[Rfam]
RNA sequence: ACGAUGUUCCGCUAUCGUAUAGUUUCGGUAAGAGCAUUAG
Number, nucleotide and partner (000 for none) at each position: 001a000002c000003g038004a037005u036006g035007u034008u033009c032010c000011g000012c000013u030014a029015u028016c027017g026018u000019a000020u000021a000022g000023u000024u000025u000026c017027g016028g015029u014030a013031a000032g009033a008034g007035c006036a005037u004038u003039a000040g000

Ribosomal protein L19 leader: a 40-nucleotide sequence from Gracilibacillus kekensis.
A search with the family's covariance model found it, with a score of 37 bits.
Pairs were carried over by alignment from the consensus structure, which was predicted with CMfinder.
The organism belongs to Gracilibacillus, within Bacteria.
This family is a putative r-protein leader autoregulatory structure found in B. subtilis and other low-GC Gram-positive bacteria. It is located in the 5' untranslated regions of mRNAs encoding ribosomal protein L19 (rplS).